About this RNA:
MIR5020 microRNA precursor family: a 124-nucleotide sequence from Arabidopsis thaliana. Its family is annotated with RISC complex and miRNA-mediated post-transcriptional gene silencing in the Gene Ontology. The sequence is in the family's curated seed alignment.
[Rfam]
RNA sequence: GAGUGAUGGUCAUGGCAUGAAAGAAGGUGAGAAUUGCAUCGUGAAUCAAAACCUCCACAAGUUGGAUAUCUUGAUUUUCUGAUCAACGCAAUUCUUACUUUCUUUCUUGCUCCUAUCAUCACUG
Numbered sequence: 001g002a003g004u005g006a007u008g009g010u011c012a013u014g015g016c017a018u019g020a021a022a023g024a025a026g027g028u029g030a031g032a033a034u035u036g037c038a039u040c041g042u043g044a045a046u047c048a049a050a051a052c053c054u055c056c057a058c059a060a061g062u063u064g065g066a067u068a069u070c071u072u073g074a075u076u077u078u079c080u081g082a083u084c085a086a087c088g089c090a091a092u093u094c095u096u097a098c099u100u101u102c103u104u105u106c107u108u109g110c111u112c113c114u115a116u117c118a119u120c121a122c123u124g
Stems, first nucleotide, its partner, number of pairs: 002123006014111003019106011031094007038075004042057002